[Rfam]
RNA sequence: UCUAGAACUUGAGAUAUAGGUUGAACACUAAACAGUGUUUGGGUUGCAGGACAGAUUCAGACUUCUCCGUUGUUGUUAUAAUUUGGACUUGAAAAUGGUCGUUUUAAAUCUUGGACUCCACAUGAAAGUUGUAGGCCUAUGUCUUACCUUUCCAUC
Numbered sequence: 001u002c003u004a005g006a007a008c009u010u011g012a013g014a015u016a017u018a019g020g021u022u023g024a025a026c027a028c029u030a031a032a033c034a035g036u037g038u039u040u041g042g043g044u045u046g047c048a049g050g051a052c053a054g055a056u057u058c059a060g061a062c063u064u065c066u067c068c069g070u071u072g073u074u075g076u077u078a079u080a081a082u083u084u085g086g087a088c089u090u091g092a093a094a095a096u097g098g099u100c101g102u103u104u105u106a107a108a109u110c111u112u113g114g115a116c117u118c119c120a121c122a123u124g125a126a127a128g129u130u131g132u133a134g135g136c137c138u139a140u141g142u143c144u145u146a147c148c149u150u151u152c153c154a155u156c
Stems, first nucleotide, its partner, number of pairs: 003154001005152003009146001011145010021134003025130001027129003035123003041119003045115001048112004054105002058101001060099001062098002072088003